This 123-nucleotide RNA from Thioalkalivibrio paradoxus belongs to the Rfam family "Group II catalytic intron D1-D4-2". Pairs were carried over by alignment from the consensus structure. Group II introns are found in rRNA, tRNA and mRNA of organelles in fungi, plants and protists, and also in mRNA in bacteria. Rfam links the family to the GO term Group II intron splicing. It scores 91 bits against the family's covariance model.
[Rfam]
RNA sequence: GGAGGGACCGACCCUCCGGAGUCUGCCUACAGGGGCCGGCUCCAAACCGCCCCGAGCGGCAUUGGCUGAAGACCGUUGUCGUGAGCAUCGAGGGAAAAGGCAUACCCACGUGGUAUGUCAGGU
Numbered sequence: 001g002g003a004g005g006g007a008c009c010g011a012c013c014c015u016c017c018g019g020a021g022u023c024u025g026c027c028u029a030c031a032g033g034g035g036c037c038g039g040c041u042c043c044a045a046a047c048c049g050c051c052c053c054g055a056g057c058g059g060c061a062u063u064g065g066c067u068g069a070a071g072a073c074c075g076u077u078g079u080c081g082u083g084a085g086c087a088u089c090g091a092g093g094g095a096a097a098a099g100g101c102a103u104a105c106c107c108a109c110g111u112g113g114u115a116u117g118u119c120a121g122g123u
Stems, first nucleotide, its partner, number of pairs: 001017005018043006025036004048122001050093002053090003056082002059079003063075003099119006